[Rfam]
RNA sequence: GGCAGUUCUUGGGUGAUGCACCCCGGAAUCAGGCUCCCUUCUCUCUGGAUCCGGGUGUGUCAUUCAAGAACCUCA
Numbered sequence: 001g002g003c004a005g006u007u008c009u010u011g012g013g014u015g016a017u018g019c020a021c022c023c024c025g026g027a028a029u030c031a032g033g034c035u036c037c038c039u040u041c042u043c044u045c046u047g048g049a050u051c052c053g054g055g056u057g058u059g060u061c062a063u064u065c066a067a068g069a070a071c072c073u074c075a
Stems, first nucleotide, its partner, number of pairs: 002074001005071013019057005025052003029048005
The record is a 75-nucleotide RNA from Cnephaeus nilssonii, which matches "mir-9223 microRNA precursor family" in Rfam. The family's consensus secondary structure was predicted with RNAalifold. The organism belongs to Cnephaeus, within Eukaryota. It scores 77 bits against the family's covariance model. Gene Ontology terms of the family: miRNA-mediated post-transcriptional gene silencing and RISC complex.